[Rfam]
RNA sequence: UGCAAGUUUCAGGGAAGGUGCGACUCCUUACUGGCGGUAACGGCUCAUCCGGGAUUCAUAACGGAUGAAGGCGAAGCCCGCAACCCGCGUACCCACGCGGUUGACCCGGUGAGAAUCCGGAGCCAACGGUUACAGUCCGGAUGGAAGAAACGAGGC
Numbered sequence: 001u002g003c004a005a006g007u008u009u010c011a012g013g014g015a016a017g018g019u020g021c022g023a024c025u026c027c028u029u030a031c032u033g034g035c036g037g038u039a040a041c042g043g044c045u046c047a048u049c050c051g052g053g054a055u056u057c058a059u060a061a062c063g064g065a066u067g068a069a070g071g072c073g074a075a076g077c078c079c080g081c082a083a084c085c086c087g088c089g090u091a092c093c094c095a096c097g098c099g100g101u102u103g104a105c106c107c108g109g110u111g112a113g114a115a116u117c118c119g120g121a122g123c124c125a126a127c128g129g130u131u132a133c134a135g136u137c138c139g140g141a142u143g144g145a146a147g148a149a150a151c152g153a154g155g156c
Stems, first nucleotide, its partner, number of pairs: 003154001006151005016028003030136002032125002034081004085100002106120004127139003

This 156-nucleotide RNA sequence from Bifidobacterium mongoliense belongs to the Rfam family "FMN riboswitch aptamer (RFN element)". It scores 81 bits against the family's covariance model. Taxonomically the source falls in Bifidobacterium mongoliense (Bacteria, Actinomycetota, Actinomycetes, Bifidobacterium). The base pairs follow the family's consensus structure, which is taken from published work. Rfam links the family to the GO term FMN binding.